[Rfam]
RNA sequence: UAACACGCGUGGCUAGGUGGCGCCCUGUGCGUUAUCCGAUGGUGAUGAGUAGUCAUCAGUUAAGCCGGGGGGAGUGCAUGGAGAUUGCCACGGUCUUAUCUCCCCCCGGUUUUGCUAC
Number, nucleotide and partner (000 for none) at each position: 001u000002a000003a000004c000005a000006c000007g000008c000009g091010u090011g089012g088013c087014u000015a000016g000017g035018u034019g033020g032021c031022g030023c000024c000025c000026u000027g000028u000029g000030c022031g021032u020033u019034a018035u017036c000037c000038g000039a000040u000041g000042g000043u055044g054045a053046u052047g000048a000049g000050u000051a000052g046053u045054c044055a043056u000057c000058a116059g115060u114061u000062a112063a000064g000065c109066c108067g107068g106069g105070g104071g103072g102073a101074g100075u000076g000077c000078a000079u000080g000081g097082a096083g095084a094085u093086u000087g013088c012089c011090a010091c009092g000093g085094u084095c083096u082097u081098a000099u000100c074101u073102c072103c071104c070105c069106c068107c067108g066109g065110u000111u000112u062113u000114g060115c059116u058117a000118c000

Annotation: The family of this 118-nucleotide RNA sequence from Sphaerotilus montanus is "RT-12 RNA". By type it is a small RNA. The organism belongs to Sphaerotilus, within Bacteria.